[Rfam]
RNA sequence: CUAAAUGUUAUCUAGGGUUCCGCGAUUGCAAAAUCGGGCAGGUCCGAGAGAUAACUCGCAACCAAUAGGUUGUGUCACGGAGGGAUAAAAGCCUGGGAGAU
Numbered sequence: 001c002u003a004a005a006u007g008u009u010a011u012c013u014a015g016g017g018u019u020c021c022g023c024g025a026u027u028g029c030a031a032a033a034u035c036g037g038g039c040a041g042g043u044c045c046g047a048g049a050g051a052u053a054a055c056u057c058g059c060a061a062c063c064a065a066u067a068g069g070u071u072g073u074g075u076c077a078c079g080g081a082g083g084g085a086u087a088a089a090a091g092c093c094u095g096g097g098a099g100a101u
Base pairs, nucleotide, nucleotide: 007055008054009053010052011051012050015045016044020042021041022039023036024035025034026033027032057074058073059072060071061070062069063068076096078099082094083093084092

Guanidine-I riboswitch aptamer: a 101-nucleotide sequence from Paenibacillus montaniterrae. This family represents a conserved RNA structure found upstream of the ykkC and yxkD genes in Bacillus subtilis and related genes in other bacteria. The function of this family is unclear although it has been suggested that it may function to switch on efflux pumps and detoxification systems in response to harmful environmental molecules. Lineage of the source: Bacteria > Bacillati > Bacillota > Paenibacillaceae > Paenibacillus. Pairs were carried over by alignment from the consensus structure.